[Rfam]
RNA: GA-cis RNA
Organism: Oribacterium sp. KHPX15
RNA sequence: AUGAGGGAGGUGCCAUCAUGCGAAGCAUGAUUUUAAUGCACCGACCGAUGUGCCGCCGAACGAAUGUGAGGGGGCGAUACCUAUG
Numbered sequence: 001a002u003g004a005g006g007g008a009g010g011u012g013c014c015a016u017c018a019u020g021c022g023a024a025g026c027a028u029g030a031u032u033u034u035a036a037u038g039c040a041c042c043g044a045c046c047g048a049u050g051u052g053c054c055g056c057c058g059a060a061c062g063a064a065u066g067u068g069a070g071g072g073g074g075c076g077a078u079a080c081c082u083a084u085g
Base pairs, nucleotide, nucleotide: 009042010041011040012039013038015031016030017029018028019027020026052075053074054073056071057070060067061066